[Rfam]
RNA sequence: UUAUGAGAUAGAGGCGCGAAUAGUUAUGAAAUUUUUAUUAGAAGAUGCAAACUAGAUAAAAAUGGGGGAGCUUUCGCCGAAGGGGUAAAUGAUUGCAUGCGUUUAUACUCUGGGCUUAUAGAGAAUAUCUAUAAGACUGUCAUUAUCAUUAAUAUUGAUAAUGGUGAGCUAUCAUUGUU
Numbered sequence: 001u002u003a004u005g006a007g008a009u010a011g012a013g014g015c016g017c018g019a020a021u022a023g024u025u026a027u028g029a030a031a032u033u034u035u036u037a038u039u040a041g042a043a044g045a046u047g048c049a050a051a052c053u054a055g056a057u058a059a060a061a062a063u064g065g066g067g068g069a070g071c072u073u074u075c076g077c078c079g080a081a082g083g084g085g086u087a088a089a090u091g092a093u094u095g096c097a098u099g100c101g102u103u104u105a106u107a108c109u110c111u112g113g114g115c116u117u118a119u120a121g122a123g124a125a126u127a128u129c130u131a132u133a134a135g136a137c138u139g140u141c142a143u144u145a146u147c148a149u150u151a152a153u154a155u156u157g158a159u160a161a162u163g164g165u166g167a168g169c170u171a172u173c174a175u176u177g178u179u
Stems, first nucleotide, its partner, number of pairs: 007173005016077005023071003031063008081111004085106007112138002115135008140164007
Rfam assigns this 179-nucleotide sequence from Thomasclavelia cocleata to the family "Lysine riboswitch aptamer".
Pairs were carried over by alignment from the consensus structure, which is taken from published work.
The organism belongs to Thomasclavelia, within Bacteria.
A search with the family's covariance model found it, with a score of 87 bits.